[Rfam]
RNA sequence: CUGUCUCUGAGGCUUGUUUUCCGUUGCCUGCGGUUUGUUUCGGUGACUCAGGCAGCGAAAGCAAGUCUGGGAGGUGG
Numbered sequence: 001c002u003g004u005c006u007c008u009g010a011g012g013c014u015u016g017u018u019u020u021c022c023g024u025u026g027c028c029u030g031c032g033g034u035u036u037g038u039u040u041c042g043g044u045g046a047c048u049c050a051g052g053c054a055g056c057g058a059a060a061g062c063a064a065g066u067c068u069g070g071g072a073g074g075u076g077g
Base pairs, nucleotide, nucleotide: 003075004074006072007071008070010068011067012066013065014064015063016062017061018060019059020058022057023056024055025054026053027052028051029050030049032047

This 77-nucleotide RNA sequence from Chionis minor belongs to the Rfam family "mir-1788 microRNA precursor family". The match comes from Rfam's covariance-model search (81 bits).